A member of the RNA family "Plastid-clpP 5UTR RNA" from Anisodus acutangulus, 69 nucleotides long.
A search with the family's covariance model found it, with a score of 83 bits.
The family's consensus secondary structure was predicted with LocARNA.
Plastid clpP is a non-coding RNA (ncRNA) recognised in plastids. It was found in the prime untranslated region (5UTR) of a protease complex subunit (clpP) in plastids, suggesting a posible cis-regulatory function.
[Rfam]
Nucleotides: 069
Stems, first nucleotide, its partner, number of pairs: 003022002006019005043068001045066001051060003
Number, partner (000 for none) and nucleotide at each position: 001000u002000g003022u004021u005000a006019u007018g008017u009016u010015c011000u012000u013000a014000g015010g016009a017008a018007c019006a020000a021004a022003g023000a024000g025000a026000a027000g028000c029000a030000g031000a032000u033000u034000u035000a036000u037000u038000c039000u040000a041000u042000a043068c044000a045066c046000a047000a048000u049000a050000a051060g052059u053058a054000c055000c056000a057000a058053u059052a060051u061000g062000c063000a064000a065000u066045g067000g068043g069000g
Description:
The source organism's lineage runs through Eukaryota, Streptophytina, Embryophyta, Pentapetalae and Anisodus. Rfam classes the family as a cis-regulatory element.